RNA: Small nucleolar RNA SNORA15
RNA sequence: GCAUGGCUGAAUACUGUGUUCUUUUUAUCAGUAAUUUACACAGCCAGACACCAUGCAAAAGUAAGAGUUUCCCUUUAAAAUAGCUGUGAUGGUAUGCUAAGGUUUUUUUCAGUGUGCCGUUAUUAAAAAGGGAUACAAUU
Number, nucleotide and partner (000 for none) at each position: 001g056002c055003a054004u053005g052006g051007c000008u000009g000010a000011a000012u000013a000014c043015u042016g041017u040018g039019u038020u000021c000022u000023u000024u000025u000026u000027a000028u000029c000030a000031g000032u000033a000034a000035u000036u000037u000038a019039c018040a017041c016042a015043g014044c000045c000046a000047g000048a000049c000050a000051c006052c005053a004054u003055g002056c001057a000058a000059a000060a000061g000062u000063a000064a000065g000066a000067g000068u000069u133070u132071c131072c000073c000074u127075u126076u125077a124078a123079a000080a000081u000082a000083g000084c000085u000086g000087u122088g121089a120090u119091g118092g117093u116094a115095u114096g113097c112098u111099a000100a000101g000102g000103u000104u000105u000106u000107u000108u000109u000110c000111a098112g097113u096114g095115u094116g093117c092118c091119g090120u089121u088122a087123u078124u077125a076126a075127a074128a000129a000130g000131g071132g070133a069134u000135a000136c000137a000138a000139u000140u000